[Rfam]
RNA sequence: UUGAAUCUUUUUGCGGUCUGGGCUUGCUGUUCCCCCGUCAGUAGUCAGGAAGCCCUUACCCCAAAAAGUAUUUG
Numbered sequence: 001u002u003g004a005a006u007c008u009u010u011u012u013g014c015g016g017u018c019u020g021g022g023c024u025u026g027c028u029g030u031u032c033c034c035c036c037g038u039c040a041g042u043a044g045u046c047a048g049g050a051a052g053c054c055c056u057u058a059c060c061c062c063a064a065a066a067a068g069u070a071u072u073u074g
Stems, first nucleotide, its partner, number of pairs: 007068007015060003020055004025050001027048002
Shown here is a 74-nucleotide RNA sequence from Salvator merianae, a member of the family "mir-129 microRNA precursor family". For this family Rfam cites "New microRNAs from mouse and human" (Lagos-Quintana et al., RNA, 2003). A search with the family's covariance model found it, with a score of 90 bits. The base pairs follow the family's consensus structure, which was predicted with RNAalifold. Taxonomically the source falls in Salvator (Eukaryota, Opisthokonta, Tetrapoda, Squamata). Rfam links the family to the GO terms RISC complex, synapse and long-term synaptic potentiation.